[Rfam]
RNA: Small nucleolar RNA SNORD24
RNA sequence: UGCAAACGAUGCUAAUUACUUGUUGCUUAAUACAAUUGAUGACAACCACCAAGAUCGCUGAUGCA
Numbered sequence: 001u002g003c004a005a006a007c008g009a010u011g012c013u014a015a016u017u018a019c020u021u022g023u024u025g026c027u028u029a030a031u032a033c034a035a036u037u038g039a040u041g042a043c044a045a046c047c048a049c050c051a052a053g054a055u056c057g058c059u060g061a062u063g064c065a
Stems, first nucleotide, its partner, number of pairs: 001065004